[Rfam]
RNA: Ribosomal S15 leader
Organism: Alteromonas aestuariivivens
RNA sequence: UAAUCCGGCUGAAUUAGUGAUCGGCCGGAUUUCAUUAGCAGGAGAAAGAUAUGUCACUAACUAAAGCGGAAACCGCUCAAAUCGUAGCAGAUUACGGUGUGAAAGAA
Numbered sequence: 001u002a003a004u005c006c007g008g009c010u011g012a013a014u015u016a017g018u019g020a021u022c023g024g025c026c027g028g029a030u031u032u033c034a035u036u037a038g039c040a041g042g043a044g045a046a047a048g049a050u051a052u053g054u055c056a057c058u059a060a061c062u063a064a065a066g067c068g069g070a071a072a073c074c075g076c077u078c079a080a081a082u083c084g085u086a087g088c089a090g091a092u093u094a095c096g097g098u099g100u101g102a103a104a105g106a107a
Base pairs, nucleotide, nucleotide: 007026008025009024010023011022012021038061041058042057044055